[Rfam]
RNA sequence: GCCACUGCUGACCAGUGGCACCCUGACACCGGUACCUGACACGGCCGGUGCAG
Numbered sequence: 001g002c003c004a005c006u007g008c009u010g011a012c013c014a015g016u017g018g019c020a021c022c023c024u025g026a027c028a029c030c031g032g033u034a035c036c037u038g039a040c041a042c043g044g045c046c047g048g049u050g051c052a053g
Base pairs, nucleotide, nucleotide: 001019002018003017004016005015006014007013023053024052025051027050028049029048030047031046032045033044